[Rfam]
RNA: SAM riboswitch aptamer (S box leader)
RNA sequence: AAUCCAUAGAGAGAGAUGGAGGGACAGGCCCUUUGAUAUCUCAGCAACCUGCUUUUAAGUGUGGUGCUAAUUCCUGAUAGAUGGUUU
Numbered sequence: 001a002a003u004c005c006a007u008a009g010a011g012a013g014a015g016a017u018g019g020a021g022g023g024a025c026a027g028g029c030c031c032u033u034u035g036a037u038a039u040c041u042c043a044g045c046a047a048c049c050u051g052c053u054u055u056u057a058a059g060u061g062u063g064g065u066g067c068u069a070a071u072u073c074c075u076g077a078u079a080g081a082u083g084g085u086u087u
Stems, first nucleotide, its partner, number of pairs: 001087002004084004013042005021031003025076004043068004048064002050061004072079001